[Rfam]
RNA: Rhizobiales sRNA Atu_C8
RNA sequence: CCCUAUGAAAGAUGUUAUUCUUGUACUGUGGAUGCGCGUGGGAUAGAUAGCUGUAGCUAUCUGGAAUAGUCUCACGCGUGCAACGGGCCCCUUCGGGGGCCUUUUUUAUUAUAAAAC
Numbered sequence: 001c002c003c004u005a006u007g008a009a010a011g012a013u014g015u016u017a018u019u020c021u022u023g024u025a026c027u028g029u030g031g032a033u034g035c036g037c038g039u040g041g042g043a044u045a046g047a048u049a050g051c052u053g054u055a056g057c058u059a060u061c062u063g064g065a066a067u068a069g070u071c072u073c074a075c076g077c078g079u080g081c082a083a084c085g086g087g088c089c090c091c092u093u094c095g096g097g098g099g100c101c102u103u104u105u106u107u108a109u110u111a112u113a114a115a116a117c
Stems, first nucleotide, its partner, number of pairs: 029113002032110001033080010045062006085102007